The record is a 516-nucleotide part of an RNA from Ktedonobacteria bacterium brp13, which matches "Bacterial small subunit ribosomal RNA" in Rfam.
The base pairs follow the family's consensus structure, which is taken from published work.
Rfam links the family to the GO terms structural constituent of ribosome and ribosome.
NCBI's taxonomy places the organism under Bacteria, Bacillati, Chloroflexota, Ktedonobacteria.
On this family, see Yusupov et al., Science 2001: "Crystal structure of the ribosome at 5.5 A resolution".

RNA sequence: UGUUUGGCGAGUUUGAUCCUGGCUCAGGAUAAACGCUGGCGGCGUGCCUAACACAUGCAAGUCGAACGCCCUUAGUAAUAAGGGAGUGGCGGACGGGUGAGGAACACGUGGGUCAUCUACCUUUCGGUGAGGAAUACCGGCGAGAAAUCGCCGACAAUACCGCAUACGCUCGCAAGAGCAAAGUUCGCAAGAGCGCCGGAAGAUGAGCCUGCGGCCGAUUAGUUAGUUGGUGGGGUAAUGGCCUACCAAGGCGACGAUCGGUAGCUGGUCUGAGAGGACGAUCAGCCACACUGGGAUUGAGAACGGCCCAGACUCCUACGGGGGGCAGCAGUGAGGAAUUUUCGUCAAUGGGGGCAACCCUGAACGAGCAACGCCGCGUGCAGGAAGAAGGUUUUCGGAUCGUAAACUGCUUUUCUCUGGGACGAGAACGGACGGUACCAGAGGAAUCAGCCUCGGCUAACUACGUGCCAGCAGCCGCGGUAAUACGUAGGAGGCAAGCGUUGUCCGGAUUUAUUG
Numbered sequence: 001u002g003u004u005u006g007g008c009g010a011g012u013u014u015g016a017u018c019c020u021g022g023c024u025c026a027g028g029a030u031a032a033a034c035g036c037u038g039g040c041g042g043c044g045u046g047c048c049u050a051a052c053a054c055a056u057g058c059a060a061g062u063c064g065a066a067c068g069c070c071c072u073u074a075g076u077a078a079u080a081a082g083g084g085a086g087u088g089g090c091g092g093a094c095g096g097g098u099g100a101g102g103a104a105c106a107c108g109u110g111g112g113u114c115a116u117c118u119a120c121c122u123u124u125c126g127g128u129g130a131g132g133a134a135u136a137c138c139g140g141c142g143a144g145a146a147a148u149c150g151c152c153g154a155c156a157a158u159a160c161c162g163c164a165u166a167c168g169c170u171c172g173c174a175a176g177a178g179c180a181a182a183g184u185u186c187g188c189a190a191g192a193g194c195g196c197c198g199g200a201a202g203a204u205g206a207g208c209c210u211g212c213g214g215c216c217g218a219u220u221a222g223u224u225a226g227u228u229g230g231u232g233g234g235g236u237a238a239u240g241g242c243c244u245a246c247c248a249a250g251g252c253g254a255c256g257a258u259c260g261g262u263a264g265c266u267g268g269u270c271u272g273a274g275a276g277g278a279c280g281a282u283c284a285g286c287c288a289c290a291c292u293g294g295g296a297u298u299g300a301g302a303a304c305g306g307c308c309c310a311g312a313c314u315c316c317u318a319c320g321g322g323g324g325g326c327a328g329c330a331g332u333g334a335g336g337a338a339u340u341u342u343c344g345u346c347a348a349u350g351g352g353g354g355c356a357a358c359c360c361u362g363a364a365c366g367a368g369c370a371a372c373g374c375c376g377c378g379u380g381c382a383g384g385a386a387g388a389a390g391g392u393u394u395u396c397g398g399a400u401c402g403u404a405a406a407c408u409g410c411u412u413u414u415c416u417c418u419g420g421g422a423c424g425a426g427a428a429c430g431g432a433c434g435g436u437a438c439c440a441g442a443g444g445a446a447u448c449a450g451c452c453u454c455g456g457c458u459a460a461c462u463a464c465g466u467g468c469c470a471g472c473a474g475c476c477g478c479g480g481u482a483a484u485a486c487g488u489a490g491g492a493g494g495c496a497a498g499c500g501u502u503g504u505c506c507g508g509a510u511u512u513a514u515u516g
Stems, first nucleotide, its partner, number of pairs: 009025005027506004032502006039377006045370002047335001052333003056330003061090003066087002069084006097289003107213007116206002121202007129163001131161002138153006169178003183194003215261003222252003227249008264286004268279004291311005313324004341367001343366003349362005380410004390401004415443006424433001450495005461490005471478002